RNA sequence: CAGCAUGUUUCCAAGGUUUAUGGCUUAACCAUGUGAUCUACAACCAUAUGGAAUAAUCUGGAGAGAGUUUGACUACACAGGUCAGCAUAAUACCUGUAGCUGUCAAUCAUUUUUCCUACAUUU
Numbered sequence: 001c002a003g004c005a006u007g008u009u010u011c012c013a014a015g016g017u018u019u020a021u022g023g024c025u026u027a028a029c030c031a032u033g034u035g036a037u038c039u040a041c042a043a044c045c046a047u048a049u050g051g052a053a054u055a056a057u058c059u060g061g062a063g064a065g066a067g068u069u070u071g072a073c074u075a076c077a078c079a080g081g082u083c084a085g086c087a088u089a090a091u092a093c094c095u096g097u098a099g100c101u102g103u104c105a106a107u108c109a110u111u112u113u114u115c116c117u118a119c120a121u122u123u
Stems, first nucleotide, its partner, number of pairs: 012033001016030001018028003060116006075103002078096004
Dot-bracket structure: ...........(...(.(((.....))).)..)..........................((((((.........((.((((...........)))).....)).......)))))).......
Overview: This 123-nucleotide sequence from Erinaceus europaeus belongs to the Rfam family "Small nucleolar RNA SNORA44". NCBI's taxonomy places the organism under Eukaryota, Dipnotetrapodomorpha, Theria, Erinaceinae, Erinaceus. Rfam classes the family as an H/ACA-box small nucleolar RNA. ACA44 is a member of the H/ACA class of snoRNA that guide the sites of modification of uridines to pseudouridines. Pairs were carried over by alignment from the consensus structure, which was predicted with PFOLD. The family has 27 seed sequences and 1,056 matches in Rfam 15.1. It scores 95 bits against the family's covariance model.